[Rfam]
RNA sequence: GUUACCUUUAAUUCAGUCCCGUGAGGCUGCCAAGGUGAAACAGAUAAGAUUCUGUUAUAAAAGGAAUAAGUAGGCAACUUUUUCUUUUAUGGAAGCACCCUGCACAAACACGGCAGGGUGCUUUUUUCUU
Number, nucleotide and partner (000 for none) at each position: 001g000002u000003u037004a036005c035006c034007u033008u032009u000010a000011a000012u000013u000014c029015a028016g027017u026018c025019c000020c000021g000022u000023g000024a000025g018026g017027c016028u015029g014030c000031c000032a008033a007034g006035g005036u004037g003038a000039a000040a000041c000042a000043g000044a000045u000046a000047a000048g000049a000050u000051u000052c000053u000054g000055u000056u000057a000058u000059a000060a088061a087062a086063g085064g084065a083066a082067u000068a080069a079070g078071u077072a000073g000074g000075c000076a000077a071078c070079u069080u068081u000082u066083u065084c064085u063086u062087u061088u060089a000090u000091g125092g124093a123094a122095g121096c120097a119098c118099c117100c116101u115102g114103c113104a000105c000106a000107a000108a000109c000110a000111c000112g000113g103114c102115a101116g100117g099118g098119u097120g096121c095122u094123u093124u092125u091126u000127u000128c000129u000130u000

The record is a 130-nucleotide RNA from Virgibacillus pantothenticus, which matches "PyrR binding site" in Rfam. Rfam describes the family as follows. This family represents the PyrR binding site and terminator structure. Rfam classes the family as a cis-regulatory element. The family's consensus secondary structure is taken from published work. A search with the family's covariance model found it, with a score of 64 bits.